Shown here is a 119-nucleotide RNA from Photobacterium halotolerans, a member of the family "t44 RNA". A search with the family's covariance model found it, with a score of 70 bits. The family's RNA type in Rfam is small RNA. The literature on the family includes a 2002 paper in Nucleic Acids Res by Tjaden et al., "Transcriptome analysis of Escherichia coli using high-density oligonucleotide probe arrays". Pairs were carried over by alignment from the consensus structure, which was predicted with LocARNA.
[Rfam]
RNA sequence: CAUUAUUUUAUUUAAUCACUCACACAUAUCGACACGUGCUCCGGGGUGCCCAAGGCUUAUGCGUAAGUCGGCCGUAAUCAGGUCAAGGGUCGGUAGCAUGGGGUAUGUGGACGCCUAAC
Numbered sequence: 001c002a003u004u005a006u007u008u009u010a011u012u013u014a015a016u017c018a019c020u021c022a023c024a025c026a027u028a029u030c031g032a033c034a035c036g037u038g039c040u041c042c043g044g045g046g047u048g049c050c051c052a053a054g055g056c057u058u059a060u061g062c063g064u065a066a067g068u069c070g071g072c073c074g075u076a077a078u079c080a081g082g083u084c085a086a087g088g089g090u091c092g093g094u095a096g097c098a099u100g101g102g103g104u105a106u107g108u109g110g111a112c113g114c115c116u117a118a119c
Stems, first nucleotide, its partner, number of pairs: 023109008035100005041093003048090004